Annotation
A member of the RNA family "Singlet oxygen resistance RNA X" from Sagittula stellata, 87 nucleotides long. Its family is annotated with response to photooxidative stress in the Gene Ontology. The family's RNA type in Rfam is small RNA. The base pairs follow the family's consensus structure. SorX (RSs2461)like SorY is a singlet oxygen induced sRNA that counteracts oxidative stress by targeting mRNA for a transporter in Rhodobacter. It also has an impact on resistance against organic hydroperoxides. Lineage of the source: Bacteria > Pseudomonadota > Rhodobacterales > Sagittula > Sagittula stellata. A search with the family's covariance model found it, with a score of 50 bits.
RNA sequence: UCCCGCAGGCAGGCCGGGUCAUGCCUGCCACCUCCCUGUUGAACCUUGCCCGGUGCGUGGGUCUCGCGCCCGCCACCGGGCAUCUUU
Numbered sequence: 001u002c003c004c005g006c007a008g009g010c011a012g013g014c015c016g017g018g019u020c021a022u023g024c025c026u027g028c029c030a031c032c033u034c035c036c037u038g039u040u041g042a043a044c045c046u047u048g049c050c051c052g053g054u055g056c057g058u059g060g061g062u063c064u065c066g067c068g069c070c071c072g073c074c075a076c077c078g079g080g081c082a083u084c085u086u087u
Stems, first nucleotide, its partner, number of pairs: 008029007047082008